[Rfam]
RNA sequence: AAGAGUUUCGUCGAGAUAUCCUCCUCCCGUCUCGACGGAUAAACGGCCGGCUUUCUCCUCCUCCCGAAACGCCGGUCGAUCAAAACGACACCCGCCGGACCUCCUCCCCCGGCGGGUGUUGUUU
Numbered sequence: 001a002a003g004a005g006u007u008u009c010g011u012c013g014a015g016a017u018a019u020c021c022u023c024c025u026c027c028c029g030u031c032u033c034g035a036c037g038g039a040u041a042a043a044c045g046g047c048c049g050g051c052u053u054u055c056u057c058c059u060c061c062u063c064c065c066g067a068a069a070c071g072c073c074g075g076u077c078g079a080u081c082a083a084a085a086c087g088a089c090a091c092c093c094g095c096c097g098g099a100c101c102u103c104c105u106c107c108c109c110c111g112g113c114g115g116g117u118g119u120u121g122u123u124u
Stems, first nucleotide, its partner, number of pairs: 008039002010036007045077007052068002088119011
The family of this 124-nucleotide sequence from Chelativorans sp. BNC1 is "Alphaproteobacterial ar14". The sequence is in the family's curated seed alignment. Rfam 15.1 lists 784 matches to the family in 332 species. It is annotated as a small RNA. A reference for the family is del Val et al. (2012), "A survey of sRNA families in alpha-proteobacteria", RNA Biol.